[Rfam]
RNA: RAGATH-18 RNA
RNA sequence: ACUGUGGAGUGUACAUAGUUGUUCCAACAUUGGAACUUGUGAGUAGCGUAUUGUUUACAAUCGCCAAAGCAUACACAAUGAAGCAGUAA
Numbered sequence: 001a002c003u004g005u006g007g008a009g010u011g012u013a014c015a016u017a018g019u020u021g022u023u024c025c026a027a028c029a030u031u032g033g034a035a036c037u038u039g040u041g042a043g044u045a046g047c048g049u050a051u052u053g054u055u056u057a058c059a060a061u062c063g064c065c066a067a068a069g070c071a072u073a074c075a076c077a078a079u080g081a082a083g084c085a086g087u088a089a
Stems, first nucleotide, its partner, number of pairs: 001087005009076005038071003046064003051060002